The family of this 92-nucleotide sequence from Vulpes vulpes is "mir-8799 microRNA precursor family".
[Rfam]
RNA sequence: GGAGGAGCGCCGGAUCCUGGGCUGUGUCCCCCUGUGCCCUGGGCUCUGGGGCCUGCACCGCUGGAAUCGCCCUCCCGGCCAGGCAGCCCCCU
Numbered sequence: 001g002g003a004g005g006a007g008c009g010c011c012g013g014a015u016c017c018u019g020g021g022c023u024g025u026g027u028c029c030c031c032c033u034g035u036g037c038c039c040u041g042g043g044c045u046c047u048g049g050g051g052c053c054u055g056c057a058c059c060g061c062u063g064g065a066a067u068c069g070c071c072c073u074c075c076c077g078g079c080c081a082g083g084c085a086g087c088c089c090c091c092u
Base pairs, nucleotide, nucleotide: 001091002090004088005087009084010083012080013079016078017077019075020074021073024070025069026068027065028064031063032060034058035057036056037055041053043052044051045050
Taxonomically the source falls in Vulpes (Eukaryota, Opisthokonta, Deuterostomia, Chordata).